RNA sequence: ACCGGAUCUAGCCCGACGGGGCGAAAAGCGGAAAGCCUUACCGCCUGUUCCGGCCAUUAUUUAAGGC
Numbered sequence: 001a002c003c004g005g006a007u008c009u010a011g012c013c014c015g016a017c018g019g020g021g022c023g024a025a026a027a028g029c030g031g032a033a034a035g036c037c038u039u040a041c042c043g044c045c046u047g048u049u050c051c052g053g054c055c056a057u058u059a060u061u062u063a064a065g066g067c
Stems, first nucleotide, its partner, number of pairs: 002053005008047001011022004028044004035067006
A member of the RNA family "int-alpA RNA", 67 nucleotides long.
It is one of the family's seed sequences.
Rfam's curators write: Acidobacteria (1 example), Planctomycetes (1 example), Proteobacteria.
Rfam classes the family as a small RNA.